[Rfam]
RNA sequence: UAAGGCAGUGACGACUCGGAAAUUUCAAGCUCAACAGACCGGAAUUAGGCGUUUCUUCCUUUAUUGGAGAUUCGUUUCUGUGUCGAUAAUCCCGCUGAACUGAGCCUUC
Numbered sequence: 001u002a003a004g005g006c007a008g009u010g011a012c013g014a015c016u017c018g019g020a021a022a023u024u025u026c027a028a029g030c031u032c033a034a035c036a037g038a039c040c041g042g043a044a045u046u047a048g049g050c051g052u053u054u055c056u057u058c059c060u061u062u063a064u065u066g067g068a069g070a071u072u073c074g075u076u077u078c079u080g081u082g083u084c085g086a087u088a089a090u091c092c093c094g095c096u097g098a099a100c101u102g103a104g105c106c107u108u109c
Stems, first nucleotide, its partner, number of pairs: 002108005

Rfam assigns this 109-nucleotide RNA from Eutrema salsugineum to the family "Small nucleolar RNA Z107/R87". The source organism's lineage runs through Eukaryota, Spermatophyta, Mesangiospermae, Eutremeae and Eutrema. The literature on the family includes a 2001 paper in J Mol Biol by Barneche et al., "Identification of 66 box C/D snoRNAs in Arabidopsis thaliana: extensive gene duplications generated multiple isoforms predicting new ribosomal RNA 2'-O-methylation sites". Pairs were carried over by alignment from the consensus structure, which was predicted with RNAfold.